[Rfam]
RNA sequence: CCUCUGCUGAUGAGCAACUUUUUGACUUUCGUUCUACUGAGCUUGCUGAAGCAACUCUUUAAUGAUCUGAGGAGG
Number, nucleotide and partner (000 for none) at each position: 001c075002c074003u073004c000005u071006g000007c000008u000009g000010a000011u000012g000013a000014g000015c000016a000017a000018c000019u000020u000021u000022u000023u000024g000025a000026c000027u000028u000029u000030c000031g000032u000033u000034c000035u000036a000037c000038u000039g000040a000041g000042c000043u000044u000045g000046c000047u000048g000049a000050a000051g000052c000053a000054a000055c000056u000057c000058u000059u000060u000061a000062a000063u000064g000065a000066u000067c000068u000069g000070a000071g005072g000073a003074g002075g001

This 75-nucleotide sequence from Alectura lathami belongs to the Rfam family "Small nucleolar RNA SNORD59". It is annotated as a C/D-box small nucleolar RNA. For this family Rfam cites "Purified box C/D snoRNPs are able to reproduce site-specific 2'-O-methylation of target RNA in vitro" (Galardi et al., Mol Cell Biol, 2002). Lineage of the source: Eukaryota > Dipnotetrapodomorpha > Archosauria > Coelurosauria > Alectura. The family is grouped with related families in Rfam's "SNORD59 clan". Rfam links the family to the GO terms RNA processing and nucleolus.